Shown here is a 96-nucleotide RNA from Nicotiana tabacum, a member of the family "MIR6152 microRNA precursor family". NCBI's taxonomy places the organism under Eukaryota, Mesangiospermae, Solanales, Nicotianoideae, Nicotiana. The base pairs follow the family's consensus structure, which was predicted with RNAalifold.

RNA sequence: UGGAUAGAUUAUUGUAUUCGACUGUAUUCCCGGCGUGAAAUAAGGAAUUACGCUGUUUUUAAACGGAAAGUGAAUCAAUUAACACAAUAGACUCCU
Numbered sequence: 001u002g003g004a005u006a007g008a009u010u011a012u013u014g015u016a017u018u019c020g021a022c023u024g025u026a027u028u029c030c031c032g033g034c035g036u037g038a039a040a041u042a043a044g045g046a047a048u049u050a051c052g053c054u055g056u057u058u059u060u061a062a063a064c065g066g067a068a069a070g071u072g073a074a075u076c077a078a079u080u081a082a083c084a085c086a087a088u089a090g091a092c093u094c095c096u
Base pairs, nucleotide, nucleotide: 002095003094004093009090010089011088012087013086014085015084017082018081020080021079023077024076026075027074028073029072031070034065035064036063037059038058039057040056041055042054